mir-2060 microRNA precursor family: a 94-nucleotide sequence from Branchiostoma floridae. Rfam 15.1 lists 3,696 matches to the family in 4 species.

RNA sequence: GUGUGCAUGUGUGUAGAGAGUGUUCAGCACCAAGGACAGAUAUGUUUGCCUGUGUGUGGAGGGUGUUAAGCACCAAAGACAGUUAUGUUUGCCU
Dot-bracket structure: ...((..(((.........(((((.((((((..(.((((.((....)).)))).)......)))))).))))).....)))..)).........
Gene Ontology terms of the family: miRNA-mediated post-transcriptional gene silencing and RISC complex. The base pairs follow the family's consensus structure, which was predicted with RNAalifold.